Background:
A member of the RNA family "MIR6217 microRNA precursor family" from Miscanthus lutarioriparius, 220 nucleotides long. Rfam 15.1 lists 2,266 matches to the family in 13 species. The organism belongs to Miscanthus, within Eukaryota.

Nucleotides: 220
Base pairs, nucleotide, nucleotide: 001220002219006215007214008213010211011210012209013208014207015206016205017204018203019202020201021200022199023198024197025196027194028193030191031190032189033188041187042186043185044184045183046182052176053175054174055173056172057171058170059169060168061167062166066164067163069161070160071159072157074155080147081146082145083144087142088141089140091138092137093132094131095130096129097128098127099126101124103122108116
Number, partner (000 for none) and nucleotide at each position: 001220u002219g003000a004000c005000c006215a007214u008213a009000g010211a011210a012209u013208a014207a015206c016205u017204u018203a019202u020201u021200c022199u023198g024197u025196g026000a027194c028193c029000c030191u031190u032189u033188u034000g035000a036000g037000u038000u039000a040000c041187g042186a043185u044184a045183a046182u047000u048000a049000c050000c051000a052176u053175g054174c055173u056172a057171a058170u059169u060168u061167a062166c063000g064000a065000u066164a067163u068000u069161a070160c071159a072157g073000u074155a075000a076000c077000u078000c079000c080147u081146u082145a083144u084000u085000a086000a087142g088141u089140g090000a091138u092137u093132u094131a095130c096129u097128a098127u099126a100000c101124c102000a103122u104000u105000a106000u107000c108116g109000u110000a111000a112000a113000u114000a115000u116108c117000a118000u119000c120000g121000u122103g123000a124101g125000u126099u127098a128097u129096a130095g131094u132093a133000a134000c135000a136000c137092g138091a139000g140089u141088a142087u143000c144083g145082u146081a147080a148000a149000u150000g151000c152000a153000u154000a155074u156000u157072c158000a159071u160070g161069u162000u163067a164066u165000c166062g167061u168060a169059a170058a171057u172056u173055g174054g175053u176052a177000c178000a179000a180000a181000u182046a183045u184044u185043a186042u187041c188033g189032a190031g191030g192000u193028g194027g195000c196025u197024a198023u199022a200021g201020a202019a203018u204017a205016a206015g207014u208013u209012a210011u211010u212000a213008u214007a215006u216000a217000u218000a219002u220001a